[Rfam]
Nucleotides: 067
Stems, first nucleotide, its partner, number of pairs: 001027008010019003031054002035052003039049004
Number, partner (000 for none) and nucleotide at each position: 001027u002026g003025u004024g005023g006022g007021a008020u009000g010019c011018c012017g013000a014000a015000g016000u017012c018011g019010g020008g021007u022006u023005c024004c025003a026002u027001a028000u029000u030000g031054a032053c033000g034000a035052c036051u037050c038000g039049c040048u041047g042046a043000a044000a045000u046042u047041c048040a049039g050037g051036a052035g053032g054031u055000u056000u057000a058000a059000a060000u061000u062000a063000u064000g065000a066000g067000c